[Rfam]
RNA sequence: CUUCCUUGAUCUGCUGCGGGCAGAUGAAAUGGAUGUGGGAAUCGAUGCCGCCGGCGGUGACGAUCAUGCCUUCGCCGGCGAUGAUUUCGGUGGCGCCGCCGAUGGCCAUCGUCACGUCCGCCUGGAUGUCGGGAUUGCCGGCCUUGCCGAUGGCGGCGAUCCUGCCGGUUUUCAAGCCGAUGUCGGCCUUGACGAUGCCCCAGUGGUCGAGGAUCAGUGCGUUGGUGAUGACGGUAUCCAUGACAUCGGCGUGGUUGCGUUGCGACUGGCCCAUGCCGUCGCGGAUG
Numbered sequence: 001c002u003u004c005c006u007u008g009a010u011c012u013g014c015u016g017c018g019g020g021c022a023g024a025u026g027a028a029a030u031g032g033a034u035g036u037g038g039g040a041a042u043c044g045a046u047g048c049c050g051c052c053g054g055c056g057g058u059g060a061c062g063a064u065c066a067u068g069c070c071u072u073c074g075c076c077g078g079c080g081a082u083g084a085u086u087u088c089g090g091u092g093g094c095g096c097c098g099c100c101g102a103u104g105g106c107c108a109u110c111g112u113c114a115c116g117u118c119c120g121c122c123u124g125g126a127u128g129u130c131g132g133g134a135u136u137g138c139c140g141g142c143c144u145u146g147c148c149g150a151u152g153g154c155g156g157c158g159a160u161c162c163u164g165c166c167g168g169u170u171u172u173c174a175a176g177c178c179g180a181u182g183u184c185g186g187c188c189u190u191g192a193c194g195a196u197g198c199c200c201c202a203g204u205g206g207u208c209g210a211g212g213a214u215c216a217g218u219g220c221g222u223u224g225g226u227g228a229u230g231a232c233g234g235u236a237u238c239c240a241u242g243a244c245a246u247c248g249g250c251g252u253g254g255u256u257g258c259g260u261u262g263c264g265a266c267u268g269g270c271c272c273a274u275g276c277c278g279u280c281g282c283g284g285a286u287g
Stems, first nucleotide, its partner, number of pairs: 001287001003285001005283001007281003012158006018076002022072002030053003034050002037048001039046001057069003077148002081144001083142001085140001090138004095130001097128001099125002102123001104121001108117002164270004170265002173262003177257001186220002189217003200209001223254001225252001230247002234244002
RNA: 5' ureB small RNA
Organism: Noviherbaspirillum sedimenti